[Rfam]
RNA: SAM riboswitch aptamer (S box leader)
Organism: Salimicrobium jeotgali
RNA sequence: AUCUUAUCAAGAGCGGUGGAGGAAUCUGGUCCUGUGAUCCCGCGGCAACCUGUUCGUAAAGAACAAGGUGCUUCUUCCAGCAGACACUAUCUGUCUGAAAGAUAAGAG
Dot-bracket structure: .(((((((....((((....(((..[[[[))).......))))((((.((((((.......)))).))))))...(]]]]((((((.....))))))..)))))))).